[Rfam]
RNA sequence: GAGUGCCUCCCCGGAGUCGAUUUGUAGCAGCAGGCUUCAAACCGCCCGGUGCUACUGCGUUAAAAGGGUAUGGUGGUGAUCGCCGCGGAAAGGUUAUCCAUCAGGGUAGCAAGU
Numbered sequence: 001g002a003g004u005g006c007c008u009c010c011c012c013g014g015a016g017u018c019g020a021u022u023u024g025u026a027g028c029a030g031c032a033g034g035c036u037u038c039a040a041a042c043c044g045c046c047c048g049g050u051g052c053u054a055c056u057g058c059g060u061u062a063a064a065a066g067g068g069u070a071u072g073g074u075g076g077u078g079a080u081c082g083c084c085g086c087g088g089a090a091a092g093g094u095u096a097u098c099c100a101u102c103a104g105g106g107u108a109g110c111a112a113g114u
Base pairs, nucleotide, nucleotide: 001009002008013038014037015036016035017034018033021030022029043113045088046087049084051077052076054074055073056072059069060068061067093110094109095108096107097106098105